This 76-nucleotide sequence from Tropilaelaps mercedesae belongs to the Rfam family "mir-153 microRNA precursor family".
Gene Ontology terms of the family: miRNA-mediated post-transcriptional gene silencing and RISC complex.
[Rfam]
Nucleotides: 076
Base pairs, nucleotide, nucleotide: 003074004073005072006071007070008068009067010066011065012064013063014062015061016060017059018058019057020056024053025052026051027050028049029048030047
Number, partner (000 for none) and nucleotide at each position: 001000g002000a003074a004073u005072a006071u007070c008068u009067c010066a011065u012064u013063u014062u015061u016060g017059u018058g019057a020056u021000u022000g023000g024053u025052g026051c027050a028049g029048u030047u031000u032000c033000g034000a035000g036000c037000a038000u039000c040000c041000a042000a043000a044000g045000a046000g047030a048029a049028u050027u051026g052025c053024a054000u055000a056020g057019u058018c059017a060016c061015a062014a063013a064012a065011g066010u067009g068008a069000u070007g071006g072005u073004g074003u075000c076000g